Shown here is an 83-nucleotide RNA from Panicum miliaceum, a member of the family "Small nucleolar RNA Z161/Z228". Rfam 15.1 lists 630 matches to the family in 214 species.
[Rfam]
RNA sequence: GGGCCUGAUGAUGAGGAUAUGCAAGUAAUCUCAUGAUGGUCUUCUGAGAAUUCUUUUGAUGCAAAAAAUAUUAUCUGAAGCAC
Numbered sequence: 001g002g003g004c005c006u007g008a009u010g011a012u013g014a015g016g017a018u019a020u021g022c023a024a025g026u027a028a029u030c031u032c033a034u035g036a037u038g039g040u041c042u043u044c045u046g047a048g049a050a051u052u053c054u055u056u057u058g059a060u061g062c063a064a065a066a067a068a069u070a071u072u073a074u075c076u077g078a079a080g081c082a083c
Stems, first nucleotide, its partner, number of pairs: 001083001003081002048056003
The base pairs follow the family's consensus structure, which was predicted with PFOLD.